[Rfam]
RNA sequence: AGCUUACUUUCGGGCGGGGUGUAAUUCCCCCCGGCGGUGAUCGGCGCGGCGCGGACGACAAUCGUUCGCGUGCCGCCGUCAGUCCGUGACCCGUCUGUCUCCUUCGAUCGAAUCGCGGAGACGGCGGUGGACCCGGUGCAAUUCCGGGACCGACAGUGACAGUCUGGAUGGGAGAAGGAAGCG
Numbered sequence: 001a002g003c004u005u006a007c008u009u010u011c012g013g014g015c016g017g018g019g020u021g022u023a024a025u026u027c028c029c030c031c032c033g034g035c036g037g038u039g040a041u042c043g044g045c046g047c048g049g050c051g052c053g054g055a056c057g058a059c060a061a062u063c064g065u066u067c068g069c070g071u072g073c074c075g076c077c078g079u080c081a082g083u084c085c086g087u088g089a090c091c092c093g094u095c096u097g098u099c100u101c102c103u104u105c106g107a108u109c110g111a112a113u114c115g116c117g118g119a120g121a122c123g124g125c126g127g128u129g130g131a132c133c134c135g136g137u138g139c140a141a142u143u144c145c146g147g148g149a150c151c152g153a154c155a156g157u158g159a160c161a162g163u164c165u166g167g168a169u170g171g172g173a174g175a176a177g178g179a180a181g182c183g
Base pairs, nucleotide, nucleotide: 003181004180005179007177008176009175010174017029018028019027031162032152033151034087035086036085037084091127092126093125094124095123132148133147134146135145136144154166155165156164
Dot-bracket structure: ..(((.((((......(((.......))).[((((((..............................................))))...(((((...........................)))))....(((((.......)))))..)).(((.....].))).......)))).)))..
The record is a 183-nucleotide RNA sequence from Cohnella faecalis, which matches "FMN riboswitch aptamer (RFN element)" in Rfam.